[Rfam]
RNA sequence: CACAAAGCUGUGACGAAAAAUAGUACUUGUUUUAAUAUGCGCAGAGAGAAGAUGGUUGGUGAAAAUCUUCGUGAAGAAAACAGGGAAGCCAUUUCUGAGCUGUUUAGCCGAAUAUAUCUACCAGUAAGCUUUACCGGAGUUCCGACCGUUAUAACGGAAGCGGCAUUUUGUGCCGGCAGAGUGCAGAGUAACCUCUGAAUUUAGGUGGUAACACGGAUAUGCUAUUUCGCCCUAAGC
Numbered sequence: 001c002a003c004a005a006a007g008c009u010g011u012g013a014c015g016a017a018a019a020a021u022a023g024u025a026c027u028u029g030u031u032u033u034a035a036u037a038u039g040c041g042c043a044g045a046g047a048g049a050a051g052a053u054g055g056u057u058g059g060u061g062a063a064a065a066u067c068u069u070c071g072u073g074a075a076g077a078a079a080a081c082a083g084g085g086a087a088g089c090c091a092u093u094u095c096u097g098a099g100c101u102g103u104u105u106a107g108c109c110g111a112a113u114a115u116a117u118c119u120a121c122c123a124g125u126a127a128g129c130u131u132u133a134c135c136g137g138a139g140u141u142c143c144g145a146c147c148g149u150u151a152u153a154a155c156g157g158a159a160g161c162g163g164c165a166u167u168u169u170g171u172g173c174c175g176g177c178a179g180a181g182u183g184c185a186g187a188g189u190a191a192c193c194u195c196u197g198a199a200u201u202u203a204g205g206u207g208g209u210a211a212c213a214c215g216g217a218u219a220u221g222c223u224a225u226u227u228c229g230c231c232c233u234a235a236g237c
Stems, first nucleotide, its partner, number of pairs: 007100002015095004026084006048070006103133001106130003135148003184197005202234004214229004
The family of this 237-nucleotide RNA from Desulfosporosinus acididurans is "T-box leader". Pairs were carried over by alignment from the consensus structure, which is taken from published work. By type it is a cis-regulatory leader. The family has 48 seed sequences and 19,395 matches in Rfam 15.1. The match comes from Rfam's covariance-model search (115 bits). Rfam describes the family as follows. Uncharged tRNA acts as the effector for transcription antitermination of genes in the T-box leader family. T-boxes are found upstream of many aminoacyl-tRNA synthetase genes and some amino acid biosynthetic genes usually in Gram-positive bacteria. Lineage of the source: Bacteria > Bacillati > Bacillota > Eubacteriales > Desulfosporosinus.